Overview:
A member of the RNA family "Bacterial small subunit ribosomal RNA" from Nonomuraea fuscirosea, 534 nucleotides of a longer RNA.
RNA sequence: UGUUUGGAGAGUUUGAUCCUGGCUCAGGACGAACGCUGGCGGCGUGCUUAACACAUGCAAGUCGAGCGGAAAGGCCCUUCGGGGUACUCGAGCGGCGAACGGGUGAGUAACACGUGAGCAACCUGCCCCUGACUCUGGGAUAAGCCCGGGAAACUGGGUCUAAUACCGGAUAUGACCGCCCCUGGCAUCGGGUGGUGGUGGAAAGUUUUUCGGUUGGGGAUGGGCUCGCGGCCUAUCAGCUUGUUGGUGGGGUAGUGGCCUACCAAGGCGACGACGGGUAGCCGGCCUGAGAGGGCGACCGGCCACACUGGGACUGAGACACGGCCCAGACUCCUACGGGAGGCAGCAGUGGGGAAUAUUGCGCAAUGGGCGGAAGCCUGACGCAGCGACGCCGCGUGGGGGAUGACGGCCUUCGGGUUGUAAACCUCUUUCAGCAGGGACGAAGUUGACGUGUACCUGCAGAAGAAGCGCCGGCUAACUACGUGCCAGCAGCCGCGGUAAUACGUAGGGCGCAAGCGUUGUCCGGAAUUAUUG
Numbered sequence: 001u002g003u004u005u006g007g008a009g010a011g012u013u014u015g016a017u018c019c020u021g022g023c024u025c026a027g028g029a030c031g032a033a034c035g036c037u038g039g040c041g042g043c044g045u046g047c048u049u050a051a052c053a054c055a056u057g058c059a060a061g062u063c064g065a066g067c068g069g070a071a072a073g074g075c076c077c078u079u080c081g082g083g084g085u086a087c088u089c090g091a092g093c094g095g096c097g098a099a100c101g102g103g104u105g106a107g108u109a110a111c112a113c114g115u116g117a118g119c120a121a122c123c124u125g126c127c128c129c130u131g132a133c134u135c136u137g138g139g140a141u142a143a144g145c146c147c148g149g150g151a152a153a154c155u156g157g158g159u160c161u162a163a164u165a166c167c168g169g170a171u172a173u174g175a176c177c178g179c180c181c182c183u184g185g186c187a188u189c190g191g192g193u194g195g196u197g198g199u200g201g202a203a204a205g206u207u208u209u210u211c212g213g214u215u216g217g218g219g220a221u222g223g224g225c226u227c228g229c230g231g232c233c234u235a236u237c238a239g240c241u242u243g244u245u246g247g248u249g250g251g252g253u254a255g256u257g258g259c260c261u262a263c264c265a266a267g268g269c270g271a272c273g274a275c276g277g278g279u280a281g282c283c284g285g286c287c288u289g290a291g292a293g294g295g296c297g298a299c300c301g302g303c304c305a306c307a308c309u310g311g312g313a314c315u316g317a318g319a320c321a322c323g324g325c326c327c328a329g330a331c332u333c334c335u336a337c338g339g340g341a342g343g344c345a346g347c348a349g350u351g352g353g354g355a356a357u358a359u360u361g362c363g364c365a366a367u368g369g370g371c372g373g374a375a376g377c378c379u380g381a382c383g384c385a386g387c388g389a390c391g392c393c394g395c396g397u398g399g400g401g402g403a404u405g406a407c408g409g410c411c412u413u414c415g416g417g418u419u420g421u422a423a424a425c426c427u428c429u430u431u432c433a434g435c436a437g438g439g440a441c442g443a444a445g446u447u448g449a450c451g452u453g454u455a456c457c458u459g460c461a462g463a464a465g466a467a468g469c470g471c472c473g474g475c476u477a478a479c480u481a482c483g484u485g486c487c488a489g490c491a492g493c494c495g496c497g498g499u500a501a502u503a504c505g506u507a508g509g510g511c512g513c514a515a516g517c518g519u520u521g522u523c524c525g526g527a528a529u530u531a532u533u534g
Stems, first nucleotide, its partner, number of pairs: 009025005027524004032520006039395006045388002047353001052351003056348003061096003066093002069089002074085004103306003113230007122223002127219007135169004144159006175196005182191003201211003232278003239269003244266008281303004285296004308329005331342004359385001361384003367380005398428004408419004432465001434460005442450001468513005479508005489496002
The base pairs follow the family's consensus structure, which is taken from published work. Rfam 15.1 lists 42,628 matches to the family in 10,626 species. A search with the family's covariance model found it, with a score of 1548 bits.